[Rfam]
Background
This 77-nucleotide sequence from Alligator sinensis belongs to the Rfam family "Mammalian CPEB3 ribozyme". Pairs were carried over by alignment from the consensus structure, which is taken from published work. It scores 48 bits against the family's covariance model. Rfam links the family to the GO term RNA nuclease activity.
RNA sequence: UGGUGAUAAUGGAAGACCAUAGCAGAAGGGCUUAUGGCACAGCCAUGUCAGAUUCCAAUGAAUCUGCAAAUUCUGCU
Numbered sequence: 001u002g003g004u005g006a007u008a009a010u011g012g013a014a015g016a017c018c019a020u021a022g023c024a025g026a027a028g029g030g031c032u033u034a035u036g037g038c039a040c041a042g043c044c045a046u047g048u049c050a051g052a053u054u055c056c057a058a059u060g061a062a063u064c065u066g067c068a069a070a071u072u073c074u075g076c077u
Stems, first nucleotide, its partner, number of pairs: 015044001017042001021077007028040001030038001049066007